Shown here is a 148-nucleotide RNA sequence from Bacillus cereus, a member of the family "c-di-AMP riboswitch aptamer (ydaO/yuaA leader)". The source organism's lineage runs through Bacteria, Bacillati, Bacillaceae, Bacillus and Bacillus cereus.
RNA sequence: UUUUGUAAUACGCUGAGUCCAAUUAUAUGGAGCGGGGGAACCAAUUUGUGCAUUGUCACUUGGGGUGAAUCUUUCAAUUUUGAAAGUAGGGCUACUCUCAAAGUCCGAAUCCGACAGCUAACUUCGUAAGCGUCUUGAGAGAGGACGG
Numbered sequence: 001u002u003u004u005g006u007a008a009u010a011c012g013c014u015g016a017g018u019c020c021a022a023u024u025a026u027a028u029g030g031a032g033c034g035g036g037g038g039a040a041c042c043a044a045u046u047u048g049u050g051c052a053u054u055g056u057c058a059c060u061u062g063g064g065g066u067g068a069a070u071c072u073u074u075c076a077a078u079u080u081u082g083a084a085a086g087u088a089g090g091g092c093u094a095c096u097c098u099c100a101a102a103g104u105c106c107g108a109a110u111c112c113g114a115c116a117g118c119u120a121a122c123u124u125c126g127u128a129a130g131c132g133u134c135u136u137g138a139g140a141g142a143g144g145a146c147g148g
Stems, first nucleotide, its partner, number of pairs: 011132004018031003032127006042062002063112003071086004089106004